Description
A member of the RNA family "TPP riboswitch aptamer (THI element)" from Marinomonas spartinae, 111 nucleotides long. From the family's description: Vitamin B(1) in its active form thiamin pyrophosphate (TPP) is an essential coenzyme that is synthesised by coupling of pyrimidine and thiazole moieties in bacteria. It scores 65 bits against the family's covariance model.
RNA sequence: CAUUAUCUCAUGGGGUGUGUUCAUUUUUGUUAUGAACGCUGAGAGGCUUACGCCAACCCAUUGAACCUGAUCCAGAUCAUGCUGGCGUAGGAAUCGAGAUAGCAAGUCACU
Number, nucleotide and partner (000 for none) at each position: 001c000002a000003u000004u000005a000006u099007c098008u097009c096010a000011u060012g059013g058014g057015g000016u000017g039018u038019g037020u036021u035022c034023a033024u032025u000026u000027u000028u000029g000030u000031u000032a024033u023034g022035a021036a020037c019038g018039c017040u000041g000042a000043g000044a000045g000046g053047c052048u000049u000050a000051c000052g047053c046054c000055a000056a000057c014058c013059c012060a011061u000062u000063g000064a000065a000066c091067c090068u089069g088070a000071u000072c085073c084074a083075g082076a000077u000078c000079a000080u000081g000082c075083u074084g073085g072086c000087g000088u069089a068090g067091g066092a000093a000094u000095c000096g009097a008098g007099a006100u000101a000102g000103c000104a000105a000106g000107u000108c000109a000110c000111u000